[Rfam]
RNA sequence: GUCAACUACCCGCGACUAAAGUCGCAGGCUUGUCUCGCGCAGGCCUAAGACUGGCGUCGGUACAUACGUACUAGCUGAUUAGCCUAAUGUGUUUCGGGCACUAUGUUAUCCGCAAAAAUACAGGCACCUGGGGAUUCUUCCCACGUCCCUUGCUCUGUGACAUGCAUUAAACAUCUCUGACGGGCAGGAGAAGUGUGCAUGUCAUACAUAACUGUGAUAACCUUGGCGAUGGGAACUACCC
Numbered sequence: 001g002u003c004a005a006c007u008a009c010c011c012g013c014g015a016c017u018a019a020a021g022u023c024g025c026a027g028g029c030u031u032g033u034c035u036c037g038c039g040c041a042g043g044c045c046u047a048a049g050a051c052u053g054g055c056g057u058c059g060g061u062a063c064a065u066a067c068g069u070a071c072u073a074g075c076u077g078a079u080u081a082g083c084c085u086a087a088u089g090u091g092u093u094u095c096g097g098g099c100a101c102u103a104u105g106u107u108a109u110c111c112g113c114a115a116a117a118a119u120a121c122a123g124g125c126a127c128c129u130g131g132g133g134a135u136u137c138u139u140c141c142c143a144c145g146u147c148c149c150u151u152g153c154u155c156u157g158u159g160a161c162a163u164g165c166a167u168u169a170a171a172c173a174u175c176u177c178u179g180a181c182g183g184g185c186a187g188g189a190g191a192a193g194u195g196u197g198c199a200u201g202u203c204a205u206a207c208a209u210a211a212c213u214g215u216g217a218u219a220a221c222c223u224u225g226g227c228g229a230u231g232g233g234a235a236c237u238a239c240c241c
Stems, first nucleotide, its partner, number of pairs: 001079004006074003010028002012025002015022002029043004082227003086223001087102001089101004105221006115215001117213001119211001124158002128152001130150006138235006159203009171194002174191005
The family of this 241-nucleotide sequence from Intestinibaculum porci is "HNH endonuclease-associated RNA and ORF (HEARO) RNA". Lineage of the source: Bacteria > Bacillota > Erysipelotrichales > Erysipelotrichaceae > Intestinibaculum. On this family, see Weinberg et al., Nature 2009: "Exceptional structured noncoding RNAs revealed by bacterial metagenome analysis". The family's consensus secondary structure is taken from published work.